Description: The record is a 131-nucleotide RNA from Carlito syrichta, which matches "Small nucleolar RNA SNORA38" in Rfam. Rfam links the family to the GO terms RNA processing, Cajal body and nucleolus. The match comes from Rfam's covariance-model search (108 bits). By type it is an H/ACA-box small nucleolar RNA. NCBI's taxonomy places the organism under Eukaryota, Tetrapoda, Mammalia, Primates, Carlito. ACA38 is a member of the H/ACA class of snoRNA that guide the sites of modification of uridines to pseudouridines.
[Rfam]
RNA sequence: CCCUCCUACAAAGGCAUAUCUGUAGUUCCUUGUCUGUGGACAUCUAAGAAUUGGAGGCAAAAAAAAUGUGGAUGUGGAAAUUCCUGGGACAACCUGUUCUCCACAGGCUGAAGAUCAACCAUUCCACAUGG
Numbered sequence: 001c002c003c004u005c006c007u008a009c010a011a012a013g014g015c016a017u018a019u020c021u022g023u024a025g026u027u028c029c030u031u032g033u034c035u036g037u038g039g040a041c042a043u044c045u046a047a048g049a050a051u052u053g054g055a056g057g058c059a060a061a062a063a064a065a066a067u068g069u070g071g072a073u074g075u076g077g078a079a080a081u082u083c084c085u086g087g088g089a090c091a092a093c094c095u096g097u098u099c100u101c102c103a104c105a106g107g108c109u110g111a112a113g114a115u116c117a118a119c120c121a122u123u124c125c126a127c128a129u130g131g
Base pairs, nucleotide, nucleotide: 002057003056004055005054006053016043017042019040020039021038024030025029070124071123072122091109093107094106095105096104097103